[Rfam]
RNA sequence: ACUGGCAAUACGCUUAAUUUCCGAUUGUAUGGAUCGGAAAGCGGGGGAACCAAGUUUUUGGGGCGAGUCGCGCGAUCUACGGAUCGCCGUAGGGAACCAUCUUUCCCGAGUCCGUCAGCUAACCUCGUCAGCAGCAGAUGGGUCAAUU
Numbered sequence: 001a002c003u004g005g006c007a008a009u010a011c012g013c014u015u016a017a018u019u020u021c022c023g024a025u026u027g028u029a030u031g032g033a034u035c036g037g038a039a040a041g042c043g044g045g046g047g048a049a050c051c052a053a054g055u056u057u058u059u060g061g062g063g064c065g066a067g068u069c070g071c072g073c074g075a076u077c078u079a080c081g082g083a084u085c086g087c088c089g090u091a092g093g094g095a096a097c098c099a100u101c102u103u104u105c106c107c108g109a110g111u112c113c114g115u116c117a118g119c120u121a122a123c124c125u126c127g128u129c130a131g132c133a134g135c136a137g138a139u140g141g142g143u144c145a146a147u148u
Stems, first nucleotide, its partner, number of pairs: 012132003018040009041128006051060002061113003069089002071086002092107004

Rfam assigns this 148-nucleotide sequence from Paenibacillus ginsengarvi to the family "c-di-AMP riboswitch aptamer (ydaO/yuaA leader)". Gene Ontology terms of the family: regulation of gene expression and cyclic-di-AMP binding. The source organism's lineage runs through Bacteria, Bacillota, Bacilli, Paenibacillaceae and Paenibacillus.